The record is a 375-nucleotide sequence from Haloprofundus sp. MHR1, which matches "Archaeal RNase P" in Rfam. Rfam describes the family as follows. Ribonuclease P (RNase P) is a ubiquitous endoribonuclease, found in archaea, bacteria and eukarya as well as chloroplasts and mitochondria. Its best characterised activity is the generation of mature 5'-ends of tRNAs by cleaving the 5'-leader elements of precursor-tRNAs. The family is grouped with related families in Rfam's "RNaseP clan". On this family, see Frank and Pace, Annu Rev Biochem 1998: "Ribonuclease P: unity and diversity in a tRNA processing ribozyme".
[Rfam]
RNA sequence: GGCAGAGAGAGCCCGACCACCGUGACCCACGGCGCGCUCGCGCGCCGCCGGGACAUGAGGAAAGUCCCCCCACCGUCCGAACAGGUGACCGGGCGCAAGCCCGGAGUCGGAGACGGCUGGCUCUGGAACAGAAACGAGACCCCUCGGUCCGACCGAUGACGUGUGCGAAUCCGACCGUAAGCGAGGAGAGUUAACCCACGGAGGGUGGACGACCGAGAACGGAUGGAACGGCGAAACCUCACCGGUGCAAGUCCGCGCCACGCGGCCGACGCGGCGCGAUUCGUGCGUCGCCCGGCCGCACGGUAGUUCGGACGACGGACGCGGACGCUCAGCCGAAUGUCGGGACGAACAGAAGGGGGCUUACUCCUCUCAGCC
Numbered sequence: 001g002g003c004a005g006a007g008a009g010a011g012c013c014c015g016a017c018c019a020c021c022g023u024g025a026c027c028c029a030c031g032g033c034g035c036g037c038u039c040g041c042g043c044g045c046c047g048c049c050g051g052g053a054c055a056u057g058a059g060g061a062a063a064g065u066c067c068c069c070c071c072a073c074c075g076u077c078c079g080a081a082c083a084g085g086u087g088a089c090c091g092g093g094c095g096c097a098a099g100c101c102c103g104g105a106g107u108c109g110g111a112g113a114c115g116g117c118u119g120g121c122u123c124u125g126g127a128a129c130a131g132a133a134a135c136g137a138g139a140c141c142c143c144u145c146g147g148u149c150c151g152a153c154c155g156a157u158g159a160c161g162u163g164u165g166c167g168a169a170u171c172c173g174a175c176c177g178u179a180a181g182c183g184a185g186g187a188g189a190g191u192u193a194a195c196c197c198a199c200g201g202a203g204g205g206u207g208g209a210c211g212a213c214c215g216a217g218a219a220c221g222g223a224u225g226g227a228a229c230g231g232c233g234a235a236a237c238c239u240c241a242c243c244g245g246u247g248c249a250a251g252u253c254c255g256c257g258c259c260a261c262g263c264g265g266c267c268g269a270c271g272c273g274g275c276g277c278g279a280u281u282c283g284u285g286c287g288u289c290g291c292c293c294g295g296c297c298g299c300a301c302g303g304u305a306g307u308u309c310g311g312a313c314g315a316c317g318g319a320c321g322c323g324g325a326c327g328c329u330c331a332g333c334c335g336a337a338u339g340u341c342g343g344g345a346c347g348a349a350c351a352g353a354a355g356g357g358g359g360c361u362u363a364c365u366c367c368u369c370u371c372a373g374c375c
Stems, first nucleotide, its partner, number of pairs: 001375003005371005010365002012344006021057004062362003066359005071247004084243005089104005105118005119238002124234001126232001140222002143217007161199002251326007259318001